Shown here is a 97-nucleotide RNA from Neorhizobium sp. SOG26, a member of the family "TPP riboswitch aptamer (THI element)". Pairs were carried over by alignment from the consensus structure, which is taken from published work. Taxonomically the source falls in Neorhizobium (Bacteria, Pseudomonadati, Pseudomonadota, Rhizobiaceae).
RNA sequence: CACCGAUGACAGGGGCGUCUGGCGUAUGCCGGGCUGAGAAGCACCCUUUGAACCUGAACCAGAUCAUGCUGGCGGAGGGAGUCGUUAGGGUUCUGAU
Numbered sequence: 001c002a003c004c005g006a007u008g009a010c011a012g013g014g015g016c017g018u019c020u021g022g023c024g025u026a027u028g029c030c031g032g033g034c035u036g037a038g039a040a041g042c043a044c045c046c047u048u049u050g051a052a053c054c055u056g057a058a059c060c061a062g063a064u065c066a067u068g069c070u071g072g073c074g075g076a077g078g079g080a081g082u083c084g085u086u087a088g089g090g091u092u093c094u095g096a097u
Stems, first nucleotide, its partner, number of pairs: 006085005011047004016041001017034005053078003059072004